Shown here is an 81-nucleotide sequence from Eubacterium sp. 14-2, a member of the family "GA-cis RNA". It scores 55 bits against the family's covariance model. The family's consensus secondary structure is taken from published work. It is annotated as a small RNA.
RNA sequence: AGAAGGAAGCUGCAUCGGCGAAGCCGAAUUAAAAUGCAGCGACUGAUAUGCCGCCGACGAAGGGAGGGGGCAAUACAAAAA
Number, nucleotide and partner (000 for none) at each position: 001a000002g000003a000004a000005g000006g000007a000008a000009g040010c039011u038012g037013c036014a000015u027016c026017g025018g024019c000020g000021a000022a000023g000024c018025c017026g016027a015028a000029u000030u000031a000032a000033a000034a000035u000036g013037c012038a011039g010040c009041g000042a000043c000044u000045g000046a000047u000048a000049u000050g071051c070052c069053g000054c067055c066056g000057a000058c062059g000060a000061a000062g058063g000064g000065a000066g055067g054068g000069g052070g051071c050072a000073a000074u000075a000076c000077a000078a000079a000080a000081a000